The record is a 50-nucleotide RNA from Aotus nancymaae, which matches "U7 small nuclear RNA" in Rfam. A reference for the family is Spycher et al. (1994), "3' end processing of mouse histone pre-mRNA: evidence for additional base-pairing between U7 snRNA and pre-mRNA", Nucleic Acids Res. The match comes from Rfam's covariance-model search (48 bits). Rfam's curators write: Animal histone pre-mRNAs are spliced by a different mechanism than nuclear pre-mRNAs and self-splicing introns. This processing involves the U7 snRNP, which contains only one RNA species: U7.

RNA sequence: UCUUUUAGAAUUUGUCUAGCAGGCUUUCCAGUUUUUGCCAGAAAGCCCCU
Dot-bracket structure: .....................(((((((..((....))..)))))))...